[Rfam]
RNA: mir-3473 microRNA precursor family
Organism: Nannospalax galili
RNA sequence: ACUGCUGAGCCAUCUCUCCAGCCCCGCCAAUAUAUUUUCUUAAAGUAUCUUUUCUUGGGCUGGAGAGAUGGCUCAGUGGU
Numbered sequence: 001a002c003u004g005c006u007g008a009g010c011c012a013u014c015u016c017u018c019c020a021g022c023c024c025c026g027c028c029a030a031u032a033u034a035u036u037u038u039c040u041u042a043a044a045g046u047a048u049c050u051u052u053u054c055u056u057g058g059g060c061u062g063g064a065g066a067g068a069u070g071g072c073u074c075a076g077u078g079g080u
Stems, first nucleotide, its partner, number of pairs: 002079023